[Rfam]
RNA sequence: CUGCUUCUGCUUUGGCGCUUUAGCUGUAUGAUAGAUUUAAAAUACUUCAUAAAGCUAGAUUACCAAAGCAUUGGCUC
Number, nucleotide and partner (000 for none) at each position: 001c000002u000003g075004c074005u000006u000007c000008u070009g069010c068011u067012u066013u065014g064015g063016c000017g061018c000019u059020u058021u057022a056023g055024c054025u053026g000027u051028a050029u049030g048031a047032u000033a000034g000035a000036u000037u000038u000039a000040a000041a000042a000043u000044a000045c000046u000047u031048c030049a029050u028051a027052a000053a025054g024055c023056u022057a021058g020059a019060u000061u017062a000063c015064c014065a013066a012067a011068g010069c009070a008071u000072u000073g000074g004075c003076u000077c000

Rfam assigns this 77-nucleotide RNA from Drosophila persimilis to the family "mir-9/mir-79 microRNA precursor family". Rfam links the family to the GO terms miRNA-mediated post-transcriptional gene silencing and RISC complex. On this family, see Lagos-Quintana et al., Science 2001: "Identification of novel genes coding for small expressed RNAs". The family has 214 seed sequences and 5,647 matches in Rfam 15.1. The family's consensus secondary structure was predicted with RNAalifold. The source organism's lineage runs through Eukaryota, Hexapoda, Aparaglossata, Muscomorpha and Sophophora. The sequence is in the family's curated seed alignment.